[Rfam]
RNA: Small nucleolar RNA snR31
Organism: Henningerozyma blattae
RNA sequence: GAAACCAACUUUUCCCACUCUUUCUUGUUGGCGUCACCUUACAGCUUUUAUUCUGUUGGGUUAGAUGCCUGACAAGUAGGACACUAAUCUUUGAUUGGUGUCUGAUUGUUAUGGAGAUGUGGCAGAAUAAUUGGUUAAUUCCAAUAGGAAGAUGUAUCUCCAGCUGUUGAUAUUCGUGAUGGUACUGUUGGGAAGCCUUUCUCUUUUUGAUAGUCUAUUACACCUUUUUUUUAACCUGAUACAGUUGGUCAUAAUUCUUGCUACAUCA
Number, nucleotide and partner (000 for none) at each position: 001g000002a000003a000004a000005c000006c000007a000008a000009c000010u000011u000012u000013u000014c000015c122016c121017a120018c119019u000020c000021u116022u115023u000024c076025u075026u074027g073028u072029u071030g070031g069032c067033g066034u065035c064036a061037c060038c059039u058040u000041a000042c000043a054044g053045c000046u000047u000048u000049u000050a000051u000052u000053c044054u043055g000056u000057u000058g039059g038060g037061u036062u000063a000064g035065a034066u033067g032068c000069c031070u030071g029072a028073c027074a026075a025076g024077u114078a000079g112080g110081a109082c108083a000084c000085u000086a000087a000088u000089c000090u000091u000092u000093g000094a000095u000096u000097g000098g000099u000100g000101u000102c000103u000104g000105a000106u000107u000108g082109u081110u080111a000112u079113g000114g077115a022116g021117a000118u000119g018120u017121g016122g015123c000124a000125g000126a000127a000128u000129a000130a000131u000132u000133g000134g000135u000136u000137a000138a000139u000140u000141c000142c000143a000144a000145u000146a262147g261148g000149a259150a000151g257152a256153u000154g000155u000156a000157u000158c000159u000160c248161c247162a246163g245164c244165u243166g242167u241168u000169g000170a000171u000172a000173u000174u000175c000176g221177u220178g219179a218180u000181g216182g000183u000184a000185c000186u000187g000188u000189u000190g000191g000192g000193a000194a000195g000196c000197c000198u000199u000200u000201c000202u000203c000204u000205u000206u000207u000208u000209g000210a000211u000212a000213g000214u000215c000216u181217a000218u179219u178220a177221c176222a000223c000224c000225u000226u000227u000228u000229u000230u000231u000232u000233a000234a000235c000236c000237u000238g000239a000240u000241a167242c166243a165244g164245u163246u162247g161248g160249u000250c000251a000252u000253a000254a000255u000256u152257c151258u000259u149260g000261c147262u146263a000264c000265a000266u000267c000268a000